[Rfam]
RNA sequence: AGAUCCUUUAACAUAGUCCCGUGAGGCUAAAAGGUGCGGAAUAAACAUUUACACGAGAUAAGUGUAUUCAAAACCUUUUUUUCCUCAUGGAAGAAAGGGUUUUUUAU
Numbered sequence: 001a002g003a004u005c006c007u008u009u010a011a012c013a014u015a016g017u018c019c020c021g022u023g024a025g026g027c028u029a030a031a032a033g034g035u036g037c038g039g040a041a042u043a044a045a046c047a048u049u050u051a052c053a054c055g056a057g058a059u060a061a062g063u064g065u066a067u068u069c070a071a072a073a074c075c076u077u078u079u080u081u082u083c084c085u086c087a088u089g090g091a092a093g094a095a096a097g098g099g100u101u102u103u104u105u106a107u
Stems, first nucleotide, its partner, number of pairs: 002037001005034004014029005039069005045063002048060001050058001071102014
RNA: PyrR binding site